About this RNA: This 56-nucleotide sequence from Bacillus subtilis belongs to the Rfam family "Bacillus-plasmid RNA".

[Rfam]
Nucleotides: 056
Base pairs, nucleotide, nucleotide: 001047002046003045004044005043006042007041008040009039
Number, partner (000 for none) and nucleotide at each position: 001047u002046g003045a004044g005043u006042c007041a008040a009039c010000g011000g012000u013000a014000a015000c016000c017000g018000g019000a020000c021000c022000g023000u024000a025000g026000g027000g028000a029000g030000g031000a032000u033000u034000a035000a036000g037000g038000a039009g040008u041007u042006g043005a044004c045003u046002c047001g048000c049000u050000c051000a052000g053000c054000g055000c056000c